[Rfam]
RNA sequence: UUUUAGCCCCAAUUGGAGCGGCAUACUUUUUGGCUGUCAUCCUGAGCGCUUGCCCGCCGUGGCUGGUAUCGAAGGACAGCCAAAAAGAUACAGCGUAAAGUGGGAAUAACA
Numbered sequence: 001u002u003u004u005a006g007c008c009c010c011a012a013u014u015g016g017a018g019c020g021g022c023a024u025a026c027u028u029u030u031u032g033g034c035u036g037u038c039a040u041c042c043u044g045a046g047c048g049c050u051u052g053c054c055c056g057c058c059g060u061g062g063c064u065g066g067u068a069u070c071g072a073a074g075g076a077c078a079g080c081c082a083a084a085a086a087g088a089u090a091c092a093g094c095g096u097a098a099a100g101u102g103g104g105a106a107u108a109a110c111a
Stems, first nucleotide, its partner, number of pairs: 009103003013099002018094002023089002029084010
Dot-bracket structure: ........(((.((...((...((....((((((((((....................................))))))))))...))...))...)).)))........
A member of the RNA family "Flavo-1 RNA" from Pedobacter cryotolerans, 111 nucleotides long. Rfam classes the family as a small RNA.